[Rfam]
RNA sequence: AAGGCAUGGUGAUGAUUGUUUAUUGUCAUCUGAUUCAUGAUGAUAAAAUACCUUCUACUCAUUCUGA
Numbered sequence: 001a002a003g004g005c006a007u008g009g010u011g012a013u014g015a016u017u018g019u020u021u022a023u024u025g026u027c028a029u030c031u032g033a034u035u036c037a038u039g040a041u042g043a044u045a046a047a048a049u050a051c052c053u054u055c056u057a058c059u060c061a062u063u064c065u066g067a
Base pairs, nucleotide, nucleotide: 006062007061008060009059026043027042030039